Glycine riboswitch aptamer: a 92-nucleotide RNA sequence from Dankookia rubra. Rfam links the family to the GO term glycine biosynthetic process. A search with the family's covariance model found it, with a score of 46 bits. Lineage of the source: Bacteria > Alphaproteobacteria > Acetobacterales > Roseomonadaceae > Dankookia.
RNA sequence: CCUCUGGAAAGCCUGCACCCGCGAGGGUGCGGCACCGACGGAGUAAGGCCCUGAAGCCAGGGGGCUGAAUCUCUCAGGUCACCGGACAGAGG
Numbered sequence: 001c002c003u004c005u006g007g008a009a010a011g012c013c014u015g016c017a018c019c020c021g022c023g024a025g026g027g028u029g030c031g032g033c034a035c036c037g038a039c040g041g042a043g044u045a046a047g048g049c050c051c052u053g054a055a056g057c058c059a060g061g062g063g064g065c066u067g068a069a070u071c072u073c074u075c076a077g078g079u080c081a082c083c084g085g086a087c088a089g090a091g092g
Stems, first nucleotide, its partner, number of pairs: 001092006013032007034079003037075002041073003047066006